[Rfam]
RNA: c-di-GMP-II-GAG riboswitch aptamer
RNA sequence: CAACCAGUACGGGGCGACGACCCGCAGUCCAUCGAAACCGGGCACUCAGACUGCGACGAGCCGGUAGCGCGACCGACGUACGCCCCC
Numbered sequence: 001c002a003a004c005c006a007g008u009a010c011g012g013g014g015c016g017a018c019g020a021c022c023c024g025c026a027g028u029c030c031a032u033c034g035a036a037a038c039c040g041g042g043c044a045c046u047c048a049g050a051c052u053g054c055g056a057c058g059a060g061c062c063g064g065u066a067g068c069g070c071g072a073c074c075g076a077c078g079u080a081c082g083c084c085c086c087c
Stems, first nucleotide, its partner, number of pairs: 007081005013062003023055007040074002042070002045067002